[Rfam]
Shown here is an 84-nucleotide RNA sequence from Leptospirillum ferriphilum, a member of the family "sRNA-Xcc1". The family's RNA type in Rfam is small RNA. It scores 73 bits against the family's covariance model. Pairs were carried over by alignment from the consensus structure, which was predicted with RNAalifold. NCBI's taxonomy places the organism under Bacteria, Pseudomonadati, Nitrospirota, Nitrospiraceae, Leptospirillum ferriphilum.
RNA sequence: CGCCGGGCGUGUGACGAAUACAAGACCCGCAAGGGGAAUCAGUCCGCCGCCCAUAGACGGUUUCUAGCGCCCGGCGUUCCUUUG
Numbered sequence: 001c002g003c004c005g006g007g008c009g010u011g012u013g014a015c016g017a018a019u020a021c022a023a024g025a026c027c028c029g030c031a032a033g034g035g036g037a038a039u040c041a042g043u044c045c046g047c048c049g050c051c052c053a054u055a056g057a058c059g060g061u062u063u064c065u066a067g068c069g070c071c072c073g074g075c076g077u078u079c080c081u082u083u084g
Stems, first nucleotide, its partner, number of pairs: 001076009013044003016040002026035003046061004